[Rfam]
RNA sequence: GGCUGGUCUGAGUGCAGUGUUUAAAACUAUUGAUUACAUAUUUCUUUGUUCCUUCUCCACCCCCACUGCUUCACUUGACUAGUCUUAA
Numbered sequence: 001g002g003c004u005g006g007u008c009u010g011a012g013u014g015c016a017g018u019g020u021u022u023a024a025a026a027c028u029a030u031u032g033a034u035u036a037c038a039u040a041u042u043u044c045u046u047u048g049u050u051c052c053u054u055c056u057c058c059a060c061c062c063c064c065a066c067u068g069c070u071u072c073a074c075u076u077g078a079c080u081a082g083u084c085u086u087a088a
Stems, first nucleotide, its partner, number of pairs: 001084008010076002014072001016067004025050003029046001
A member of the RNA family "Y RNA" from Pongo abelii, 88 nucleotides long. From the family's description: Y RNAs are components of the Ro ribonucleoprotein particle (Ro RNP), in association with Ro60 and La proteins. It scores 60 bits against the family's covariance model.